[Rfam]
RNA sequence: UAAGGACCCGCUCCGCGCGGGUGGCUAUGCCGGGCGCCAAUCCCCCGGCCAAUC
Numbered sequence: 001u002a003a004g005g006a007c008c009c010g011c012u013c014c015g016c017g018c019g020g021g022u023g024g025c026u027a028u029g030c031c032g033g034g035c036g037c038c039a040a041u042c043c044c045c046c047g048g049c050c051a052a053u054c
Base pairs, nucleotide, nucleotide: 006022007021008020009019010018011017029049030048031047032046033045034044
RNA: sul1 RNA
Organism: Aurantimonas marianensis